[Rfam]
The family of this 75-nucleotide RNA sequence from Chiloscyllium punctatum is "mir-129 microRNA precursor family".
Gene Ontology terms of the family: RISC complex, synapse and gene silencing by miRNA.
On this family, see Lagos-Quintana et al., Curr Biol 2002: "Identification of tissue-specific microRNAs from mouse".
The organism belongs to Chiloscyllium, within Eukaryota.
The match comes from Rfam's covariance-model search (51 bits).
RNA sequence: CAAAUACUUUUUGGGGUAAGGGCUUCCUGAUUGUCAGACAAAGGAACAGCAAGCCCAGACCGCAAAAAGAUUCAA
Numbered sequence: 001c002a003a004a005u006a007c008u009u010u011u012u013g014g015g016g017u018a019a020g021g022g023c024u025u026c027c028u029g030a031u032u033g034u035c036a037g038a039c040a041a042a043g044g045a046a047c048a049g050c051a052a053g054c055c056c057a058g059a060c061c062g063c064a065a066a067a068a069g070a071u072u073c074a075a
Stems, first nucleotide, its partner, number of pairs: 007069007015061003020056004025051001027049002